[Rfam]
This 449-nucleotide part of an RNA from Halomicrobium mukohataei belongs to the Rfam family "Archaeal large subunit ribosomal RNA". Rfam's curators put it in the seed alignment.

RNA sequence: CCAACCAAAACAUGUCGAAGCAUGACGUCCGCCGAGGUAGUUCGUGGGGUAGAGCGACCGAUUGAGGUGCUUCACUUCGAGAGAAGUGAACACUUCUGUCAAACUCCGAACCUACGAACGCUGUCGACGCGGGCAGUCCGGUAUGCGGGGUAAGCCUGUGUACCGUAAGGGAGACAACCCAGCGCCGGGUUAAGGUCCCAAAGUGUGGAUUAAGUGUGAUCGAAAGUGGUCUCAAGCCCUAGACAGCCGGGAGGUGAGCUUAGAAGCAGCUACCCUCUAAGAAUAGCGUAACAGCUUACCGGCCGAGGUUUGAGGCGCUGAAAAUGAUCGGGACUCAAAUCCACCACCGAGACCUGGCCGCUCCCGUGAAAGGGAGAUCGAGUAGGUUGGCGCUCCGAUUGGAUGGAAGCAGGGGUGAGAACUCCUGUGGACCGAUCGGUGACGACAAU
Numbered sequence: 001c002c003a004a005c006c007a008a009a010a011c012a013u014g015u016c017g018a019a020g021c022a023u024g025a026c027g028u029c030c031g032c033c034g035a036g037g038u039a040g041u042u043c044g045u046g047g048g049g050u051a052g053a054g055c056g057a058c059c060g061a062u063u064g065a066g067g068u069g070c071u072u073c074a075c076u077u078c079g080a081g082a083g084a085a086g087u088g089a090a091c092a093c094u095u096c097u098g099u100c101a102a103a104c105u106c107c108g109a110a111c112c113u114a115c116g117a118a119c120g121c122u123g124u125c126g127a128c129g130c131g132g133g134c135a136g137u138c139c140g141g142u143a144u145g146c147g148g149g150g151u152a153a154g155c156c157u158g159u160g161u162a163c164c165g166u167a168a169g170g171g172a173g174a175c176a177a178c179c180c181a182g183c184g185c186c187g188g189g190u191u192a193a194g195g196u197c198c199c200a201a202a203g204u205g206u207g208g209a210u211u212a213a214g215u216g217u218g219a220u221c222g223a224a225a226g227u228g229g230u231c232u233c234a235a236g237c238c239c240u241a242g243a244c245a246g247c248c249g250g251g252a253g254g255u256g257a258g259c260u261u262a263g264a265a266g267c268a269g270c271u272a273c274c275c276u277c278u279a280a281g282a283a284u285a286g287c288g289u290a291a292c293a294g295c296u297u298a299c300c301g302g303c304c305g306a307g308g309u310u311u312g313a314g315g316c317g318c319u320g321a322a323a324a325u326g327a328u329c330g331g332g333a334c335u336c337a338a339a340u341c342c343a344c345c346a347c348c349g350a351g352a353c354c355u356g357g358c359c360g361c362u363c364c365c366g367u368g369a370a371a372g373g374g375a376g377a378u379c380g381a382g383u384a385g386g387u388u389g390g391c392g393c394u395c396c397g398a399u400u401g402g403a404u405g406g407a408a409g410c411a412g413g414g415g416u417g418a419g420a421a422c423u424c425c426u427g428u429g430g431a432c433c434g435a436u437c438g439g440u441g442a443c444g445a446c447a448a449u
Base pairs, nucleotide, nucleotide: 001390002389003388004387005386006385011024012023013022014021015020026136027134028133029132030131031130032129036122037121038120040119041118042117043116044115045114046113047112052107053105054104060100061099062098064096065095066094067093068092069091073088074087075086076085077084078083140164141163142162143161144160145159146158147157148156169180170179171178184358185357186356187355188354189353190352194348195347196346203345205344206343207342208341209340210339225319226318227317229316230315231314232313233312234311235310236309237308238307246303247302248301249300250299252276253275254274257271258270259269277281282297286295287294359380360379361376362375363374364373365372391444393441395439396438397437398436399435400434401433402432409428410427411426412425413424414423415422416421
Lineage of the source: Archaea > Halobacteria > Halobacteriales > Halomicrobium > Halomicrobium mukohataei.